[Rfam]
RNA: EFASI RNA
RNA sequence: CUGAACCGAUGCCGAGGGGGAGUCAGGACGAUCCGGGGGAGUGACCUGCGAAAGCGGGCGGCUGCUCAGAGAGCACAACCGAUACCCCACAACACCUCAACAGCGACCGCCCCGGCGCUCAGGUAUCGUUCG
Numbered sequence: 001c002u003g004a005a006c007c008g009a010u011g012c013c014g015a016g017g018g019g020g021a022g023u024c025a026g027g028a029c030g031a032u033c034c035g036g037g038g039g040a041g042u043g044a045c046c047u048g049c050g051a052a053a054g055c056g057g058g059c060g061g062c063u064g065c066u067c068a069g070a071g072a073g074c075a076c077a078a079c080c081g082a083u084a085c086c087c088c089a090c091a092a093c094a095c096c097u098c099a100a101c102a103g104c105g106a107c108c109g110c111c112c113c114g115g116c117g118c119u120c121a122g123g124u125a126u127c128g129u130u131c132g
Stems, first nucleotide, its partner, number of pairs: 002132004007128007019034003023031001036088004045058005059081003063075005
Dot-bracket structure: .((((.(((((((.....(((.(.......)))).((((.....(((((....)))))(((.(((((...)))))...)))...)))).................................)))))))))))